[Rfam]
RNA sequence: GCACUUUCCGAACUCAUAGGCCCUAUCUUGUGGUAUGAACUGAGUACGCGAUGAUUUAUGGUGCAUAUCGGGGGCUUACCAUAAGAUAAUGCCGUGAAUUCAUAAAGCAU
Numbered sequence: 001g002c003a004c005u006u007u008c009c010g011a012a013c014u015c016a017u018a019g020g021c022c023c024u025a026u027c028u029u030g031u032g033g034u035a036u037g038a039a040c041u042g043a044g045u046a047c048g049c050g051a052u053g054a055u056u057u058a059u060g061g062u063g064c065a066u067a068u069c070g071g072g073g074g075c076u077u078a079c080c081a082u083a084a085g086a087u088a089a090u091g092c093c094g095u096g097a098a099u100u101c102a103u104a105a106a107g108c109a110u
Stems, first nucleotide, its partner, number of pairs: 004107004010101003014097003019093003024088012037075001040072002044068003048064003
RNA: MIR1428 microRNA precursor family